[Rfam]
Nucleotides: 149
Base pairs, nucleotide, nucleotide: 004110008106009105010104012102014100016099017098018097019096027088029086031084032083033082034081049077050076051075052074053073057071058070059069122145123144124143125142126141127140128139129138130137131136
Number, partner (000 for none) and nucleotide at each position: 001000c002000u003000g004110g005000a006000g007000a008106a009105u010104g011000a012102u013000g014100a015000c016099a017098u018097g019096u020000u021000c022000c023000g024000c025000a026000c027088c028000a029086c030000u031084c032083g033082u034081u035000u036000c037000a038000a039000c040000g041000g042000c043000c044000u045000a046000c047000u048000a049077c050076u051075a052074c053073u054000a055000a056000a057071c058070g059069c060000c061000u062000c063000u064000u065000c066000u067000g068000u069059g070058c071057g072000c073053g074052g075051u076050a077049g078000g079000c080000u081034g082033g083032u084031g085000u086029g087000c088027g089000a090000c091000g092000u093000u094000c095000a096019g097018c098017g099016u100014u101000a102012g103000u104010c105009a106008u107000c108000a109000u110004c111000a112000g113000u114000a115000a116000a117000a118000c119000u120000a121000u122145a123144a124143a125142c126141c127140c128139g129138c130137g131136c132000c133000g134000c135000u136131g137130c138129g139128c140127g141126g142125g143124u144123u145122u146000u147000u148000u149000u
This 149-nucleotide RNA from Kluyvera genomosp. 3 belongs to the Rfam family "Leucine operon leader". The base pairs follow the family's consensus structure, which is taken from published work. Rfam links the family to the GO term leucine biosynthetic process. On this family, see Kolter and Yanofsky, Annu Rev Genet 1982: "Attenuation in amino acid biosynthetic operons". The organism belongs to Kluyvera, within Bacteria. At least 6 amino acid operons are known to be regulated by attenuation. In each a leader sequence of 150-200 bp is found upstream of the first gene in the operon. This leader sequence can assume two different secondary structures known as the terminator and the anti-terminator structure. In each case the leader also codes for very short peptide sequence that is rich in the end product amino acid of the operon.